[Rfam]
RNA sequence: CGCGUGGUGUGCGGCGAAAAAUGACCGUAUAGCGACGCGGCCUUAACUAGAGGU
Numbered sequence: 001c002g003c004g005u006g007g008u009g010u011g012c013g014g015c016g017a018a019a020a021a022u023g024a025c026c027g028u029a030u031a032g033c034g035a036c037g038c039g040g041c042c043u044u045a046a047c048u049a050g051a052g053g054u
Base pairs, nucleotide, nucleotide: 001039002038003037004036005035007033008032011028012027013026014025015023

Annotation: A member of the RNA family "L31-Gammaproteobacteria ribosomal protein leader" from Enterobacteriaceae bacterium B14, 54 nucleotides long. Rfam's curators put it in the seed alignment. A reference for the family is Eckert and Weinberg (2020), "Discovery of 20 novel ribosomal leader candidates in bacteria and archaea", BMC Microbiol. The source organism's lineage runs through Bacteria, Pseudomonadati, Pseudomonadota, Gammaproteobacteria and Enterobacteriaceae. Rfam classes the family as a cis-regulatory leader.